RNA sequence: AAAAAGGCUUUUUUAAAAGCCAUCUAUAUUUUAUAACUAAGUAAA
Numbered sequence: 001a002a003a004a005a006g007g008c009u010u011u012u013u014u015a016a017a018a019g020c021c022a023u024c025u026a027u028a029u030u031u032u033a034u035a036a037c038u039a040a041g042u043a044a045a
Stems, first nucleotide, its partner, number of pairs: 006021006
Rfam assigns this 45-nucleotide sequence from Sclerurus mexicanus to the family "Histone 3' UTR stem-loop". For this family Rfam cites "The sequence of the stem and flanking sequences at the 3' end of histone mRNA are critical determinants for the binding of the stem-loop binding protein" (Williams and Marzluff, Nucleic Acids Res, 1995).